Rfam assigns this 163-nucleotide RNA from Oryctolagus cuniculus to the family "Small Cajal body specific RNA 16". From the family's description: scaRNAs are a specific class of small nuclear RNAs which localise to the Cajal bodies and guide the modification of RNA polymerase II transcribed spliceosomal RNAs U1, U2, U4, U5 and U12. ACA47 belongs to the H/ACA box class of guide RNAs as it has the predicted hairpin-hinge-hairpin-tail structure, the conserved H/ACA-box motifs and is found associated with GAR1. ACA47 is predicted to guide the pseudouridylation of residue U5 of the U1 spliceosomal snRNA.
RNA sequence: GCGGUCUGGGGAAAGGCUCCUGUGUGGCUGCGCCCCGUACCAGGCAGCCCGACCCUGACCUACAGUAAGCGCCCAGGGGCCGCCCCCCGGUGCGGACGUUGCAGUAACAGGUGUGAGCACCCUAGCAGCAGUUUGGUGAUCAUGUAUGAUACUGCACACAGGC
Numbered sequence: 001g002c003g004g005u006c007u008g009g010g011g012a013a014a015g016g017c018u019c020c021u022g023u024g025u026g027g028c029u030g031c032g033c034c035c036c037g038u039a040c041c042a043g044g045c046a047g048c049c050c051g052a053c054c055c056u057g058a059c060c061u062a063c064a065g066u067a068a069g070c071g072c073c074c075a076g077g078g079g080c081c082g083c084c085c086c087c088c089g090g091u092g093c094g095g096a097c098g099u100u101g102c103a104g105u106a107a108c109a110g111g112u113g114u115g116a117g118c119a120c121c122c123u124a125g126c127a128g129c130a131g132u133u134u135g136g137u138g139a140u141c142a143u144g145u146a147u148g149a150u151a152c153u154g155c156a157c158a159c160a161g162g163c
Base pairs, nucleotide, nucleotide: 003060004059005058006057008055009054010053015049016048017047018046019044020043021042022041024040025039026034027033028032072090073089076085077084078083100156101155102154103153104152105151106150108148109147114142115141116140118138119137120136121135124133125132126131